[Rfam]
RNA: mir-1542 microRNA precursor family
Organism: Monodelphis domestica
RNA sequence: ACAGUGCCUGGCACAUAGGAGCUUCAUAAAUGUGUGUUGAUUUAUUUAUUGAUCUCCAAUGCCUAGCACUGU
Numbered sequence: 001a002c003a004g005u006g007c008c009u010g011g012c013a014c015a016u017a018g019g020a021g022c023u024u025c026a027u028a029a030a031u032g033u034g035u036g037u038u039g040a041u042u043u044a045u046u047u048a049u050u051g052a053u054c055u056c057c058a059a060u061g062c063c064u065a066g067c068a069c070u071g072u
Base pairs, nucleotide, nucleotide: 002071003070004069005068006067007066010063011062012061013060018057019056020055021054024052025051026050027048028047029046030045031044032043034041035040